[Rfam]
The record is a 114-nucleotide RNA sequence, which matches "Hairpin ribozyme 1 from viruses-like metatranscriptomes" in Rfam.
RNA sequence: GGACUGGACCAAGGCUCAUUCAGGUUGGAUCUUGCAUCCUAGGGUUGCCUGGAGUCAUGGCGAAGUCAGACAGGAAAACACGGCUCAAGCCCGAGAGUCGGCAUAUUAACUGUC
Numbered sequence: 001g002g003a004c005u006g007g008a009c010c011a012a013g014g015c016u017c018a019u020u021c022a023g024g025u026u027g028g029a030u031c032u033u034g035c036a037u038c039c040u041a042g043g044g045u046u047g048c049c050u051g052g053a054g055u056c057a058u059g060g061c062g063a064a065g066u067c068a069g070a071c072a073g074g075a076a077a078a079c080a081c082g083g084c085u086c087a088a089g090c091c092c093g094a095g096a097g098u099c100g101g102c103a104u105a106u107u108a109a110c111u112g113u114c
Stems, first nucleotide, its partner, number of pairs: 002067003009060003013056003019053007069114005081100006

A reference for the family is Weinberg et al. (2021), "Identification of over 200-fold more hairpin ribozymes than previously known in diverse circular RNAs", Nucleic Acids Res.